[Rfam]
RNA: LAGLIDADG-2 RNA
RNA sequence: AUAUAGGUCUCACUUAGAGGCCUCACUAACCUGGGGAGGUUAGGCAUCCAACGGGUAGCGAUAGCUCCGUCCCUUUGGAGAGACGGUCCAGAGACCGGGCUUGUCAGACCCGGUCGGGAAACCGUCUU
Numbered sequence: 001a002u003a004u005a006g007g008u009c010u011c012a013c014u015u016a017g018a019g020g021c022c023u024c025a026c027u028a029a030c031c032u033g034g035g036g037a038g039g040u041u042a043g044g045c046a047u048c049c050a051a052c053g054g055g056u057a058g059c060g061a062u063a064g065c066u067c068c069g070u071c072c073c074u075u076u077g078g079a080g081a082g083a084c085g086g087u088c089c090a091g092a093g094a095c096c097g098g099g100c101u102u103g104u105c106a107g108a109c110c111c112g113g114u115c116g117g118g119a120a121a122c123c124g125u126c127u128u
Base pairs, nucleotide, nucleotide: 005023006022007021008020009019010018011017026043027042028041029040030039031038032037047079048078049077050076053073054072055071058070059069060068080128081127082126083125084124085123086122093115094114095113096112097111098110099109